The family of this 127-nucleotide RNA sequence from Aeromonas simiae is "Histidine operon leader". Rfam describes the family as follows. At least 6 amino acid operons are known to be regulated by attenuation. In each a leader sequence of 150-200 bp is found upstream of the first gene in the operon. The family's consensus secondary structure is taken from published work. It is annotated as a cis-regulatory leader. On this family, see Kolter and Yanofsky, Annu Rev Genet 1982: "Attenuation in amino acid biosynthetic operons". The source organism's lineage runs through Bacteria, Pseudomonadota, Gammaproteobacteria, Aeromonadaceae and Aeromonas. Rfam links the family to the GO term histidine biosynthetic process.

[Rfam]
Nucleotides: 127
Stems, first nucleotide, its partner, number of pairs: 008044002011040002014037001017034002020031002046071006088124002091121013
Number, partner (000 for none) and nucleotide at each position: 001000c002000c003000a004000c005000c006000g007000u008044c009043a010000c011040c012039a013000u014037c015000a016000u017034c018033c019000c020031g021030a022000a023000u024000a025000g026000u027000c028000u029000u030021u031020c032000a033018g034017g035000a036000g037014g038000u039012u040011g041000g042000c043009u044008g045000c046071u047070g048069g049068a050067a051066g052000a053000c054000c055000a056000a057000u058000a059000a060000a061000g062000g063000u064000g065000a066051c067050u068049u069048c070047c071046a072000a073000g074000c075000a076000g077000a078000c079000c080000c081000c082000c083000a084000c085000a086000u087000c088124u089123g090000c091121a092120a093119a094118c095117c096116c097115u098114c099113g100112g101111a102110a103109g104000c105000a106000c107000c108000g109103c110102u111101u112100u113099c114098g115097a116096g117095g118094g119093u120092u121091u122000u123089u124088g125000u126000u127000u